This 132-nucleotide RNA from Erinaceus europaeus belongs to the Rfam family "Small nucleolar RNA SNORA68".
[Rfam]
RNA sequence: UCAGCACCUAGAUGCUAAGGCCACUAUUCAUUGUAACAGUGGUUCAGAUACAGAUGCGAACAGCAAAGGGGACCUUGUCUCCUUUGGAGGACUGUCUAUGCCCUUCAAAAUGAAUUUAGAGGUUUUAAAUAC
Numbered sequence: 001u002c003a004g005c006a007c008c009u010a011g012a013u014g015c016u017a018a019g020g021c022c023a024c025u026a027u028u029c030a031u032u033g034u035a036a037c038a039g040u041g042g043u044u045c046a047g048a049u050a051c052a053g054a055u056g057c058g059a060a061c062a063g064c065a066a067a068g069g070g071g072a073c074c075u076u077g078u079c080u081c082c083u084u085u086g087g088a089g090g091a092c093u094g095u096c097u098a099u100g101c102c103c104u105u106c107a108a109a110a111u112g113a114a115u116u117u118a119g120a121g122g123u124u125u126u127a128a129a130u131a132c
Base pairs, nucleotide, nucleotide: 004057005056006055008053009052019044020043021042022041023040024039025038027036028035070125071124072123073122074121075120076119083109084108085107086106087105088104089103090102092100
About this RNA: About the family: U68 is a member of the H/ACA class of small nucleolar RNAs (snoRNAs) which act as guides in the the modification of uridines to pseudouridines. It scores 78 bits against the family's covariance model.